The record is a 59-nucleotide sequence from Paspalum vaginatum, which matches "Plastid-psbN 5UTR RNA" in Rfam. The family's consensus secondary structure was predicted with LocARNA. By type it is a cis-regulatory element. Plastid psbN is a non-coding RNA (ncRNA) recognised in plastids. It was reported as a conserved 11 stem-loop in the prime untranslated region (5UTR) of psbN genes. It has been reported that the motif is retained in a subset of mature transcripts in barley, which can suggests a possible role in transcript alternative 5 prime processing. The literature on the family includes a 2023 paper in Plant Commun by Richter et al., "Retrograde signaling in plants: A critical review focusing on the GUN pathway and beyond".
RNA sequence: UGUGACUCCAUAAAAGGAGUAGUCCCCAACCCGAAGCUACUUUUCCAUAUUCCAAAUUC
Numbered sequence: 001u002g003u004g005a006c007u008c009c010a011u012a013a014a015a016g017g018a019g020u021a022g023u024c025c026c027c028a029a030c031c032c033g034a035a036g037c038u039a040c041u042u043u044u045c046c047a048u049a050u051u052c053c054a055a056a057u058u059c
Stems, first nucleotide, its partner, number of pairs: 016043008025033001